The family of this 244-nucleotide RNA sequence from Paecilomyces variotii is "Small nucleolar RNA snR191". Rfam links the family to the GO terms nucleolus and RNA processing. On this family, see Badis et al., RNA 2003: "A snoRNA that guides the two most conserved pseudouridine modifications within rRNA confers a growth advantage in yeast". It scores 65 bits against the family's covariance model. The family's consensus secondary structure was predicted with WAR.
Nucleotides: 244
Stems, first nucleotide, its partner, number of pairs: 003078003017065004022058006030041004090162006099123010130146007167238003173232003183223004189217004195207001196202001
Number, partner (000 for none) and nucleotide at each position: 001000u002000u003078c004077c005076a006000u007000u008000g009000c010000u011000a012000a013000g014000u015000c016000a017065a018064g019063g020062c021000u022058u023057c024056u025055u026054c027053c028000g029000u030041g031040c032039a033038a034000u035000u036000u037000g038033u039032u040031g041030c042000c043000g044000u045000c046000u047000c048000u049000c050000u051000a052000u053027g054026g055025a056024a057023g058022a059000c060000u061000u062020g063019u064018c065017u066000g067000u068000u069000a070000c071000a072000g073000c074000u075000u076005u077004g078003g079000u080000a081000g082000a083000u084000c085000a086000a087000c088000a089000c090162u091161g092160g093159c094158c095157c096000g097000c098000c099123g100122c101121c102120u103119g104118g105117c106116u107115u108114c109000u110000u111000u112000c113000u114108g115107a116106a117105g118104u119103u120102a121101g122100g123099u124000a125000g126000a127000c128000c129000g130146g131145c132144u133143c134142u135141c136140g137000u138000u139000u140136u141135g142134a143133g144132g145131g146130u147000c148000g149000a150000u151000c152000a153000u154000a155000a156000a157095g158094g159093g160092c161091c162090a163000u164000g165000u166000c167238g168237u169236g170000c171000u172000u173232u174231g175230u176000u177000u178000g179000a180000g181000u182000u183223g184222a185221g186220g187000g188000c189217u190216g191215c192214u193000u194000c195207u196202g197000c198000c199000u200000u201000u202196c203000g204000g205000u206000g207195a208000c209000u210000u211000c212000a213000u214192a215191g216190c217189a218000g219000u220186u221185c222184u223183c224000u225000u226000a227000g228000u229000a230175a231174c232173a233000u234000c235000c236169c237168a238167c239000a240000c241000a242000u243000c244000u